RNA sequence: UGGCUGUAGCAACAUGAAUUCAAUUUGAGGAGUUUACUGGCCGGUUGUCAUUUUGCUGUUGACUUAUCUGCUUACCGAACUUCUAACAUUU
Numbered sequence: 001u002g003g004c005u006g007u008a009g010c011a012a013c014a015u016g017a018a019u020u021c022a023a024u025u026u027g028a029g030g031a032g033u034u035u036a037c038u039g040g041c042c043g044g045u046u047g048u049c050a051u052u053u054u055g056c057u058g059u060u061g062a063c064u065u066a067u068c069u070g071c072u073u074a075c076c077g078a079a080c081u082u083c084u085a086a087c088a089u090u091u
Stems, first nucleotide, its partner, number of pairs: 028084007039072003043068003047063004

A member of the RNA family "Small nucleolar RNA snoR109" from Anisodus acutangulus, 91 nucleotides long. By type it is an H/ACA-box small nucleolar RNA. It scores 75 bits against the family's covariance model. The source organism's lineage runs through Eukaryota, Spermatophyta, Pentapetalae, Solanales and Anisodus.